[Rfam]
Overview: Shown here is a 66-nucleotide sequence from Symbiodinium natans, a member of the family "mir-8/mir-141/mir-200 microRNA precursor family".
RNA sequence: GUCGCCGUUUUACUGGGCAAGGUCGGUUUUUUUGACCGAACUGACCUUGCCCAGUAAAACGGCGAC
Numbered sequence: 001g002u003c004g005c006c007g008u009u010u011u012a013c014u015g016g017g018c019a020a021g022g023u024c025g026g027u028u029u030u031u032u033u034g035a036c037c038g039a040a041c042u043g044a045c046c047u048u049g050c051c052c053a054g055u056a057a058a059a060c061g062g063c064g065a066c
Base pairs, nucleotide, nucleotide: 002065003064004063005062006061007060008059009058010057011056012055013054014053015052016051017050018049019048020047021046022045023044024043025042026041027040
Rfam 15.1 lists 2,669 matches to the family in 883 species. Pairs were carried over by alignment from the consensus structure, which was predicted with RNAalifold. The source organism's lineage runs through Eukaryota, Sar, Alveolata, Suessiales and Symbiodinium. Rfam links the family to the GO terms miRNA-mediated post-transcriptional gene silencing and RISC complex.